[Rfam]
RNA sequence: UCUGGCUAUGAUGACACACUUGCCCUCACUGAGAUCAGGCUUGACUGAGACACUCGUACUCUCCUGAGCCACA
Numbered sequence: 001u002c003u004g005g006c007u008a009u010g011a012u013g014a015c016a017c018a019c020u021u022g023c024c025c026u027c028a029c030u031g032a033g034a035u036c037a038g039g040c041u042u043g044a045c046u047g048a049g050a051c052a053c054u055c056g057u058a059c060u061c062u063c064c065u066g067a068g069c070c071a072c073a
Base pairs, nucleotide, nucleotide: 001073003071004070005069006068

A member of the RNA family "Small nucleolar RNA SNORD103/SNORD85" from Takifugu flavidus, 73 nucleotides long. The match comes from Rfam's covariance-model search (48 bits).